About this RNA
Alphaproteobacterial sRNA ar7: a 144-nucleotide RNA from Paramesorhizobium leguminum. For this family Rfam cites "A survey of sRNA families in alpha-proteobacteria" (del Val et al., RNA Biol, 2012). Rfam classes the family as a small RNA. The pairing is the family consensus, mapped onto this sequence. The match comes from Rfam's covariance-model search (100 bits).
RNA sequence: CGUCGACGCCAUGUCGAUAUCCGGAUUUCCGGCCCGUCCCCCGCCGGACCCCGGAUUUGGCGGCAGCCUCAUCCCCCCUCUCCGGGCUGCCGCUAAUAUAAUGAUCUGACCGCUGCGAUACCCCCCUCAUCGCAGCGGUCAAAU
Numbered sequence: 001c002g003u004c005g006a007c008g009c010c011a012u013g014u015c016g017a018u019a020u021c022c023g024g025a026u027u028u029c030c031g032g033c034c035c036g037u038c039c040c041c042c043g044c045c046g047g048a049c050c051c052c053g054g055a056u057u058u059g060g061c062g063g064c065a066g067c068c069u070c071a072u073c074c075c076c077c078c079u080c081u082c083c084g085g086g087c088u089g090c091c092g093c094u095a096a097u098a099u100a101a102u103g104a105u106c107u108g109a110c111c112g113c114u115g116c117g118a119u120a121c122c123c124c125c126c127u128c129a130u131c132g133c134a135g136c137g138g139u140c141a142a143a144u
Base pairs, nucleotide, nucleotide: 020055021054022053023052024051031045032044033043058095059094060093061092062091063090064089065088066087067086068085110138111137112136113135114134115133116132117131118130119129